RNA sequence: AGAAAGGAAUGUUAGACUAAAACUAUUACGUCGUGUGACAACGUCUAACUGACUCACCUCUUGUGGG
Numbered sequence: 001a002g003a004a005a006g007g008a009a010u011g012u013u014a015g016a017c018u019a020a021a022a023c024u025a026u027u028a029c030g031u032c033g034u035g036u037g038a039c040a041a042c043g044u045c046u047a048a049c050u051g052a053c054u055c056a057c058c059u060c061u062u063g064u065g066g067g
Stems, first nucleotide, its partner, number of pairs: 011049007026038004053067005
Dot-bracket structure: ..........(((((((........((((.....))))....)))))))...(((((.....)))))